[Rfam]
RNA sequence: UUACAAAGAGUUCUUGAGUCUCCAUGCUUCUCUGACGUUGCAUGGAGUCUAUGUCUGGACCUUCUCCAUUUCCUCUUUCAAGAGAAUGUGAGCAUUGAAGGAUUCGGACAUAGCCUUCAUGCAUGCUAGAGUAUCAUGGAGGCCCGUGAACUACUUGUAA
Number, nucleotide and partner (000 for none) at each position: 001u000002u159003a158004c157005a156006a155007a000008g000009a152010g151011u150012u149013c148014u000015u146016g145017a000018g143019u142020c141021u140022c139023c138024a137025u136026g135027c000028u000029u000030c131031u130032c129033u128034g127035a000036c125037g124038u123039u000040g122041c121042a120043u119044g118045g117046a116047g115048u000049c113050u112051a111052u110053g109054u108055c107056u106057g105058g104059a103060c000061c101062u100063u099064c092065u091066c090067c088068a087069u086070u085071u084072c000073c000074u000075c000076u000077u000078u000079c000080a000081a000082g000083a000084g071085a070086a069087u068088g067089u000090g066091a065092g064093c000094a000095u000096u000097g000098a000099a063100g062101g061102a000103u059104u058105c057106g056107g055108a054109c053110a052111u051112a050113g049114c000115c047116u046117u045118c044119a043120u042121g041122c040123a038124u037125g036126c000127u034128a033129g032130a031131g030132u000133a000134u000135c026136a025137u024138g023139g022140a021141g020142g019143c018144c000145c016146g015147u000148g013149a012150a011151c010152u009153a000154c000155u006156u005157g004158u003159a002160a000
RNA: MIR538 microRNA precursor family